RNA sequence: UACUACCAAACCCUAUCCCCACCUCUACGUGGUGACCGCUGGGAGUUCUUCUUUAACGAAAAGCUGCAGACGGAGAAGG
Numbered sequence: 001u002a003c004u005a006c007c008a009a010a011c012c013c014u015a016u017c018c019c020c021a022c023c024u025c026u027a028c029g030u031g032g033u034g035a036c037c038g039c040u041g042g043g044a045g046u047u048c049u050u051c052u053u054u055a056a057c058g059a060a061a062a063g064c065u066g067c068a069g070a071c072g073g074a075g076a077a078g079g
Base pairs, nucleotide, nucleotide: 012079013078014077016075018073019072021033022032023031044065045064046063047062049060050059051058
RNA: drz-agam-1 ribozyme
Organism: Hermetia illucens